[Rfam]
RNA sequence: GGCUCGGGUGGAGGAUCGCCGGGGUCCUGGCCCCGGCGAUCCUCCACCCGGGCC
Numbered sequence: 001g002g003c004u005c006g007g008g009u010g011g012a013g014g015a016u017c018g019c020c021g022g023g024g025u026c027c028u029g030g031c032c033c034c035g036g037c038g039a040u041c042c043u044c045c046a047c048c049c050g051g052g053c054c
Stems, first nucleotide, its partner, number of pairs: 001054024026030001